Rfam assigns this 70-nucleotide RNA from Phyllostomus discolor to the family "Small nucleolar RNA U2-30". The match comes from Rfam's covariance-model search (79 bits). It is annotated as a C/D-box small nucleolar RNA. Gene Ontology terms of the family: RNA processing and nucleolus.
RNA sequence: GAGCAAUGAUGAAAACGUUUUACUACUGACCUUUGUAAUUAUGAACGUGUCUACACUUGAUAUGAGGUCA
Numbered sequence: 001g002a003g004c005a006a007u008g009a010u011g012a013a014a015a016c017g018u019u020u021u022a023c024u025a026c027u028g029a030c031c032u033u034u035g036u037a038a039u040u041a042u043g044a045a046c047g048u049g050u051c052u053a054c055a056c057u058u059g060a061u062a063u064g065a066g067g068u069c070a
Stems, first nucleotide, its partner, number of pairs: 001069002004066001013034003017030003